Shown here is a 118-nucleotide sequence from Paenibacillus terrae, a member of the family "Bacillus sRNA ncr1015".
It is one of the family's seed sequences.
[Rfam]
RNA sequence: UUGUAAGAUGCAAUAACUUUGCUCAUGAAACUUAUAAAAGUCGUAAUCUGAUUAUAUCAAUGUGUCUGUUUAUGUGCAAUAUAAAGAACCUGGUAAAACUGUCCAGGUUCUUUUUUGA
Numbered sequence: 001u002u003g004u005a006a007g008a009u010g011c012a013a014u015a016a017c018u019u020u021g022c023u024c025a026u027g028a029a030a031c032u033u034a035u036a037a038a039a040g041u042c043g044u045a046a047u048c049u050g051a052u053u054a055u056a057u058c059a060a061u062g063u064g065u066c067u068g069u070u071u072a073u074g075u076g077c078a079a080u081a082u083a084a085a086g087a088a089c090c091u092g093g094u095a096a097a098a099c100u101g102u103c104c105a106g107g108u109u110c111u112u113u114u115u116u117g118a
Base pairs, nucleotide, nucleotide: 034073035072036071037070038069040065041064042062043061083113084112085111086110087109088108089107090106091105092104093103
The organism belongs to Paenibacillus terrae, within Bacteria.
Pairs were carried over by alignment from the consensus structure, which is taken from published work.